Rfam assigns this 80-nucleotide RNA from Clostridium beijerinckii to the family "skipping-rope RNA". The sequence is in the family's curated seed alignment.
[Rfam]
Nucleotides: 080
Base pairs, nucleotide, nucleotide: 001080002079003078004077005076006075007074008073011029012028013027014026015025020065021064022063031049032043033042034041035040054072055071056070057069058068
Number, partner (000 for none) and nucleotide at each position: 001080g002079u003078u004077u005076u006075u007074u008073g009000a010000g011029g012028u013027g014026a015025g016000a017000a018000a019000a020065g021064g022063c023000u024000c025015c026014u027013c028012a029011c030000g031049c032043g033042c034041u035040a036000a037000u038000c039000u040035u041034a042033g043032u044000a045000a046000u047000c048000a049031g050000a051000g052000a053000u054072g055071c056070a057069g058068g059000a060000u061000a062000c063022g064021c065020c066000g067000a068058c069057c070056u071055g072054c073008c074007a075006a076005a077004a078003a079002a080001u
Overview: The organism belongs to Clostridium beijerinckii, within Bacteria. The family's consensus secondary structure is taken from published work.